[Rfam]
RNA sequence: UGGUGAGGUAGAGGUGCGAUAUUUAAUAGUCUUUAACGUAGCUUGAGAAGCCGUGAGGUUAAGGAGAAGGAAAUAUUGCCGAAGUGUAUAGUAUUCUCGGUGCUAUAUGCUGGGACUGUAGUGAACAACUGCAGGACUGUCUCGAUAAACGUCCCAGUUUGUUGAGGAGUGCUAUCUCAUUU
Numbered sequence: 001u002g003g004u005g006a007g008g009u010a011g012a013g014g015u016g017c018g019a020u021a022u023u024u025a026a027u028a029g030u031c032u033u034u035a036a037c038g039u040a041g042c043u044u045g046a047g048a049a050g051c052c053g054u055g056a057g058g059u060u061a062a063g064g065a066g067a068a069g070g071a072a073a074u075a076u077u078g079c080c081g082a083a084g085u086g087u088a089u090a091g092u093a094u095u096c097u098c099g100g101u102g103c104u105a106u107a108u109g110c111u112g113g114g115a116c117u118g119u120a121g122u123g124a125a126c127a128a129c130u131g132c133a134g135g136a137c138u139g140u141c142u143c144g145a146u147a148a149a150c151g152u153c154c155c156a157g158u159u160u161g162u163u164g165a166g167g168a169g170u171g172c173u174a175u176c177u178c179a180u181u182u
Stems, first nucleotide, its partner, number of pairs: 006177006016079009031064007083111012112138002116134007140167010